[Rfam]
The record is a 56-nucleotide RNA from Microvirga makkahensis, which matches "terC RNA" in Rfam. Pairs were carried over by alignment from the consensus structure, which is taken from published work. Rfam classes the family as a cis-regulatory element. Lineage of the source: Bacteria > Pseudomonadota > Alphaproteobacteria > Hyphomicrobiales > Microvirga. The match comes from Rfam's covariance-model search (53 bits).

RNA sequence: ACCGGGGUCCGGGCCCCUCUGGCAGUUCCCCCAGGCUGCGAUGUCGGACUCUCCCA
Numbered sequence: 001a002c003c004g005g006g007g008u009c010c011g012g013g014c015c016c017c018u019c020u021g022g023c024a025g026u027u028c029c030c031c032c033a034g035g036c037u038g039c040g041a042u043g044u045c046g047g048a049c050u051c052u053c054c055c056a
Stems, first nucleotide, its partner, number of pairs: 006050007022039006